Rfam assigns this 79-nucleotide RNA sequence from Edaphosphingomonas laterariae to the family "Makes More Granules Regulator RNA (mmgR)". The organism belongs to Edaphosphingomonas, within Bacteria. A reference for the family is Corbino et al. (2005), "Evidence for a second class of S-adenosylmethionine riboswitches and other regulatory RNA motifs in alpha-proteobacteria", Genome Biol. Pairs were carried over by alignment from the consensus structure.
RNA sequence: GGAACGGGCCUUUCAGGCAUCCUCUCCUAAAGACUUUCGGGUCGGUUCUCUCGGGAACCGGCCCUUUUUUUUGCACUGC
Numbered sequence: 001g002g003a004a005c006g007g008g009c010c011u012u013u014c015a016g017g018c019a020u021c022c023u024c025u026c027c028u029a030a031a032g033a034c035u036u037u038c039g040g041g042u043c044g045g046u047u048c049u050c051u052c053g054g055g056a057a058c059c060g061g062c063c064c065u066u067u068u069u070u071u072u073g074c075a076c077u078g079c
Stems, first nucleotide, its partner, number of pairs: 008018004039064009